[Rfam]
Nucleotides: 090
Stems, first nucleotide, its partner, number of pairs: 006085008020034004036069003039065002043063003049057002
Number, partner (000 for none) and nucleotide at each position: 001000u002000a003000c004000u005000g006085u007084u008083u009082u010081g011080c012079g013078g014000a015000a016000g017000a018000g019000a020034u021033c022032g023031g024000g025000u026000u027000u028000a029000u030000c031023c032022c033021g034020g035000c036069g037068c038067c039065g040064a041000a042000g043063g044062a045061g046000c047000a048000a049057c050056c051000g052000c053000c054000c055000c056050g057049g058000a059000a060000a061045c062044u063043c064040u065039c066000a067038g068037g069036c070000a071000c072000c073000a074000a075000g076000g077000a078013c079012c080011g081010c082009a083008a084007g085006g086000c087000u088000u089000c090000u

The record is a 90-nucleotide RNA from Candidatus Filomicrobium marinum, which matches "Glycine riboswitch aptamer" in Rfam. It scores 61 bits against the family's covariance model. The pairing is the family consensus, mapped onto this sequence. The source organism's lineage runs through Bacteria, Pseudomonadota, Alphaproteobacteria, Hyphomicrobiaceae and Filomicrobium.